[Rfam]
RNA sequence: GGAGCGGGAAGCCGGCAGGGCGCUCGCCCAUAAGCCCGGCGCCUUCGCCCGGCAACGGGCGAAGGCC
Dot-bracket structure: ..........(((((..((((....))))......)))))...((((((((....))))))))....